[Rfam]
RNA sequence: UAAUAUAUUUCGCUUAAUUUCCUUUAGGGAAAGCGGGGGAACCAACAAUCCACUCCUCUAUAAAGAUUGGGUGACGAUUAGGGGUGAAUCCUGAUUACAGGUAUAUGUUCAUGAUAUCUGUUCAGGUAGGGCGACUCUCAACGCCCGAAUCCGGCAGCUAACCUCGUAAGCGUAUAGGAGAGAGGAU
Numbered sequence: 001u002a003a004u005a006u007a008u009u010u011c012g013c014u015u016a017a018u019u020u021c022c023u024u025u026a027g028g029g030a031a032a033g034c035g036g037g038g039g040a041a042c043c044a045a046c047a048a049u050c051c052a053c054u055c056c057u058c059u060a061u062a063a064a065g066a067u068u069g070g071g072u073g074a075c076g077a078u079u080a081g082g083g084g085u086g087a088a089u090c091c092u093g094a095u096u097a098c099a100g101g102u103a104u105a106u107g108u109u110c111a112u113g114a115u116a117u118c119u120g121u122u123c124a125g126g127u128a129g130g131g132c133g134a135c136u137c138u139c140a141a142c143g144c145c146c147g148a149a150u151c152c153g154g155c156a157g158c159u160a161a162c163c164u165c166g167u168a169a170g171c172g173u174a175u176a177g178g179a180g181a182g183a184g185g186a187u
Base pairs, nucleotide, nucleotide: 011172012171013170014169018032019031020030033167034166035165036164037163038162043081082152083151084150090126091125092124093123129146130145131144132143